[Rfam]
The record is a 141-nucleotide RNA sequence from Esox lucius, which matches "Small nucleolar RNA SNORD10" in Rfam.
Rfam links the family to the GO terms nucleolus and RNA processing.
A reference for the family is Huttenhofer et al. (2001), "RNomics: an experimental approach that identifies 201 candidates for novel, small, non-messenger RNAs in mouse", EMBO J.
The family's RNA type in Rfam is C/D-box small nucleolar RNA.
RNA sequence: GUAUAGUGAUGAAAUCCAUGCGUGUCAGCUGACUCCGGCCCCCCCUGGGUGUUUGAGUUCUGCCUGUCAACGUUCUGUUGGCUGGUGUUCUGAACCCCAGGGCUCUGGAACUCAUGAUCAGAUUUCACACUGGCUGAAUAC
Dot-bracket structure: ((((......................................((((((((...........................................))).)))))...................................))))
Numbered sequence: 001g002u003a004u005a006g007u008g009a010u011g012a013a014a015u016c017c018a019u020g021c022g023u024g025u026c027a028g029c030u031g032a033c034u035c036c037g038g039c040c041c042c043c044c045c046u047g048g049g050u051g052u053u054u055g056a057g058u059u060c061u062g063c064c065u066g067u068c069a070a071c072g073u074u075c076u077g078u079u080g081g082c083u084g085g086u087g088u089u090c091u092g093a094a095c096c097c098c099a100g101g102g103c104u105c106u107g108g109a110a111c112u113c114a115u116g117a118u119c120a121g122a123u124u125u126c127a128c129a130c131u132g133g134c135u136g137a138a139u140a141c
Stems, first nucleotide, its partner, number of pairs: 001141004043102005048096003
It scores 70 bits against the family's covariance model. Taxonomically the source falls in Esox (Eukaryota, Opisthokonta, Actinopterygii, Clupeocephala).